The family of this 160-nucleotide RNA sequence from Streptomyces actuosus is "c-di-AMP riboswitch aptamer (ydaO/yuaA leader)". The source organism's lineage runs through Bacteria, Actinomycetes, Kitasatosporales, Streptomycetaceae and Streptomyces. Rfam's curators write: This family represents a conserved RNA structure found upstream of the ydaO and yuaA genes in Bacillus subtilis and related genes in other bacteria.
RNA sequence: CGCACACACUCACCCGUGCCCGGCAGGAGCGGGGGACCCACAGGUACGACCGCCUGUUCCGGUUCCCGGAACGGCUUGGGGUUUAGUCGCGCCGAAAAGCGCGGCCGGACAUCUCCAGUCCGCACCCGACAGCUCACCUCGCAGGCGCCGGAGAGGAAUU
Numbered sequence: 001c002g003c004a005c006a007c008a009c010u011c012a013c014c015c016g017u018g019c020c021c022g023g024c025a026g027g028a029g030c031g032g033g034g035g036a037c038c039c040a041c042a043g044g045u046a047c048g049a050c051c052g053c054c055u056g057u058u059c060c061g062g063u064u065c066c067c068g069g070a071a072c073g074g075c076u077u078g079g080g081g082u083u084u085a086g087u088c089g090c091g092c093c094g095a096a097a098a099g100c101g102c103g104g105c106c107g108g109a110c111a112u113c114u115c116c117a118g119u120c121c122g123c124a125c126c127c128g129a130c131a132g133c134u135c136a137c138c139u140c141g142c143a144g145g146c147g148c149c150g151g152a153g154a155g156g157a158a159u160u
Stems, first nucleotide, its partner, number of pairs: 011147001013145002019027002029142006039078002079127003087104004107121004